The record is a 181-nucleotide RNA from Agarivorans albus, which matches "6S / SsrS RNA" in Rfam. Taxonomically the source falls in Agarivorans albus (Bacteria, Gammaproteobacteria, Alteromonadaceae, Agarivorans). E. coli 6S RNA was the first non coding RNA to be sequenced, but its function was unknown until recently. It consists of 184 nucleotides that fold into an extended hairpin structure with a large single-stranded internal bulge. The 6S RNA specifically associates with RNA polymerase holoenzyme containing the sigma70 specificity factor. For this family Rfam cites "6S RNA regulates E. coli RNA polymerase activity" (Wassarman and Storz, Cell, 2000).
[Rfam]
RNA sequence: AGUUUCCUGGGGUGUUCGCCAGUUGGUGAUGUCCCUGAGCCGAUAAUUGUAUCUUAAGGGUAAUUUUUCCCUGCUAUUGAGCAUGCUCAGCCCGACUGAGAAGCCUACGGUAGGGUCUUGUUUCCCGCCUUGAACCUCAUGGUUCAAGGGCUAAAAUCAACAGCGGCACUCUGGGUACUUC
Numbered sequence: 001a002g003u004u005u006c007c008u009g010g011g012g013u014g015u016u017c018g019c020c021a022g023u024u025g026g027u028g029a030u031g032u033c034c035c036u037g038a039g040c041c042g043a044u045a046a047u048u049g050u051a052u053c054u055u056a057a058g059g060g061u062a063a064u065u066u067u068u069c070c071c072u073g074c075u076a077u078u079g080a081g082c083a084u085g086c087u088c089a090g091c092c093c094g095a096c097u098g099a100g101a102a103g104c105c106u107a108c109g110g111u112a113g114g115g116u117c118u119u120g121u122u123u124c125c126c127g128c129c130u131u132g133a134a135c136c137u138c139a140u141g142g143u144u145c146a147a148g149g150g151c152u153a154a155a156a157u158c159a160a161c162a163g164c165g166g167c168a169c170u171c172u173g174g175g176u177a178c179u180u181c
Base pairs, nucleotide, nucleotide: 002179004177006175007174008173009172010171011170012169013168014167015166017165018164019163031151032150033149034148036146037145038144039143040142041141058126059125060124062122063121064120069115070114071113072112073111074110075109081104082103086100087099088098089097090096